[Rfam]
RNA sequence: GUCCGAGAACUGUGGGGAAUUUUGUCUCCCCCUUCAGAUCCGGCAAUGCAGAUAUUGUUAUGAAUAUUUGCAUUUAUUUUAACAUUGUAAGGAG
Number, nucleotide and partner (000 for none) at each position: 001g000002u000003c043004c042005g041006a000007g040008a039009a000010c037011u036012g035013u000014g033015g032016g031017g030018a000019a000020u000021u000022u000023u000024g000025u000026c000027u000028c000029c000030c017031c016032c015033u014034u000035c012036a011037g010038a000039u008040c007041c005042g004043g003044c000045a000046a000047u000048g000049c000050a000051g000052a000053u000054a000055u000056u000057g000058u000059u000060a000061u000062g000063a000064a000065u000066a000067u000068u000069u000070g000071c000072a000073u000074u000075u000076a000077u000078u000079u000080u000081a000082a000083c000084a000085u000086u000087g000088u000089a000090a000091g000092g000093a000094g000
L20-Deltaproteobacteria ribosomal protein leader: a 94-nucleotide RNA sequence. Pairs were carried over by alignment from the consensus structure, which is taken from published work. It is one of the family's seed sequences. By type it is a cis-regulatory leader.